[Rfam]
RNA sequence: GAACUCUCAAAGUUAGCCCCAGGGCCUUCCCUAAGACCCCGAGAAGUCAAAUUUUUGAAAACCCUUACGAGGCUAAGGGUU
Numbered sequence: 001g002a003a004c005u006c007u008c009a010a011a012g013u014u015a016g017c018c019c020c021a022g023g024g025c026c027u028u029c030c031c032u033a034a035g036a037c038c039c040c041g042a043g044a045a046g047u048c049a050a051a052u053u054u055u056u057g058a059a060a061a062c063c064c065u066u067a068c069g070a071g072g073c074u075a076a077g078g079g080u081u
Stems, first nucleotide, its partner, number of pairs: 022039003026035003061080007
Rfam assigns this 81-nucleotide RNA sequence from Ancylostoma duodenale to the family "SmY spliceosomal RNA". Pairs were carried over by alignment from the consensus structure, which is taken from published work. The organism belongs to Ancylostoma, within Eukaryota. A search with the family's covariance model found it, with a score of 43 bits. For this family Rfam cites "A novel family of C. elegans snRNPs contains proteins associated with trans-splicing" (MacMorris et al., RNA, 2007).